[Rfam]
RNA sequence: AGUCGGGCAAGAUGUCGGCCUGCAAGCUUCAGGCUGCCUGAUAUGGUAUCUGCUCUUCUUUGACCACGGAUGUACUGGCACUGUUAAGAGCAUGAGACCAAGCGAGGUCAGGCAAUCUGCCUGGCCUUUUUUUUG
Numbered sequence: 001a002g003u004c005g006g007g008c009a010a011g012a013u014g015u016c017g018g019c020c021u022g023c024a025a026g027c028u029u030c031a032g033g034c035u036g037c038c039u040g041a042u043a044u045g046g047u048a049u050c051u052g053c054u055c056u057u058c059u060u061u062g063a064c065c066a067c068g069g070a071u072g073u074a075c076u077g078g079c080a081c082u083g084u085u086a087a088g089a090g091c092a093u094g095a096g097a098c099c100a101a102g103c104g105a106g107g108u109c110a111g112g113c114a115a116u117c118u119g120c121c122u123g124g125c126c127u128u129u130u131u132u133u134u135g
Stems, first nucleotide, its partner, number of pairs: 003046003008040002016036005049094001051092005058083001061080002064078003097134001100132003104128011
Background:
The family of this 135-nucleotide RNA sequence from Allorhizobium borbori is "Alphaproteobacterial sRNA ar35". The literature on the family includes a 2012 paper in RNA Biol by del Val et al., "A survey of sRNA families in alpha-proteobacteria". Rfam classes the family as a small RNA. The base pairs follow the family's consensus structure. The match comes from Rfam's covariance-model search (50 bits).